The record is a 71-nucleotide RNA sequence from Gambusia affinis, which matches "Small nucleolar RNA SNORD26" in Rfam. The family is grouped with related families in Rfam's "SNORD26 clan". The family has 17 seed sequences and 451 matches in Rfam 15.1. Taxonomically the source falls in Gambusia (Eukaryota, Eumetazoa, Actinopterygii, Percomorphaceae). Gene Ontology terms of the family: nucleolus and RNA processing.

[Rfam]
RNA sequence: CUACAGUGAUGUUCUAUUUGAACUCUCUCACUGAAUAAUCAAUUGAAGACAAUUCAAUUAUUCUGAGUAGC
Numbered sequence: 001c002u003a004c005a006g007u008g009a010u011g012u013u014c015u016a017u018u019u020g021a022a023c024u025c026u027c028u029c030a031c032u033g034a035a036u037a038a039u040c041a042a043u044u045g046a047a048g049a050c051a052a053u054u055c056a057a058u059u060a061u062u063c064u065g066a067g068u069a070g071c
Stems, first nucleotide, its partner, number of pairs: 001070004
Dot-bracket structure: ((((..............................................................)))).